[Rfam]
RNA sequence: CGCAAGUAUUUUACGAUUAAGAAGCGACUGUCUCUUGUGCAGAUCAUGUAUAAAAGU
Numbered sequence: 001c002g003c004a005a006g007u008a009u010u011u012u013a014c015g016a017u018u019a020a021g022a023a024g025c026g027a028c029u030g031u032c033u034c035u036u037g038u039g040c041a042g043a044u045c046a047u048g049u050a051u052a053a054a055a056g057u
Stems, first nucleotide, its partner, number of pairs: 018037005024031002
About this RNA:
Plastid-rps18 3UTR RNA: a 57-nucleotide RNA sequence from Portulaca grandiflora. Rfam's curators put it in the seed alignment. The family has 238 seed sequences and 1,462 matches in Rfam 15.1. On this family, see Richter et al., Plant Commun 2023: "Retrograde signaling in plants: A critical review focusing on the GUN pathway and beyond".